[Rfam]
RNA sequence: CGCCAAGUCCGAGGCUUCGGCACUUGUCGGAGCCUGGUGCAAGAAGGC
Numbered sequence: 001c002g003c004c005a006a007g008u009c010c011g012a013g014g015c016u017u018c019g020g021c022a023c024u025u026g027u028c029g030g031a032g033c034c035u036g037g038u039g040c041a042a043g044a045a046g047g048c
Stems, first nucleotide, its partner, number of pairs: 013034008

The family of this 48-nucleotide RNA from Streptomyces sp. Ru73 is "raiA-hairpin RNA". The match comes from Rfam's covariance-model search (52 bits). The source organism's lineage runs through Bacteria, Actinomycetes, Kitasatosporales, Streptomycetaceae and Streptomyces. Rfam classes the family as a small RNA. Pairs were carried over by alignment from the consensus structure, which is taken from published work.